A member of the RNA family "DUF3800-VIII RNA", 67 nucleotides long.
[Rfam]
RNA sequence: AAUGCCCUGCAUUUCUCGAAGCCUUACGUUCCUACGUAGGGUACUUAUGUAGAGAAUGUGGGGCAUU
Numbered sequence: 001a002a003u004g005c006c007c008u009g010c011a012u013u014u015c016u017c018g019a020a021g022c023c024u025u026a027c028g029u030u031c032c033u034a035c036g037u038a039g040g041g042u043a044c045u046u047a048u049g050u051a052g053a054g055a056a057u058g059u060g061g062g063g064c065a066u067u
Base pairs, nucleotide, nucleotide: 001067002066003065004064005063006062007061008060009059010058011057012056013055015054016053017052021042022041023040024039025038026037027036028035029034
Description: The family's consensus secondary structure is taken from published work. Rfam describes the family as follows. Bacteroidetes, Cyanobacteria, Firmicutes, Planctomycetes (1 example), Proteobacteria, Tenericutes (1 example).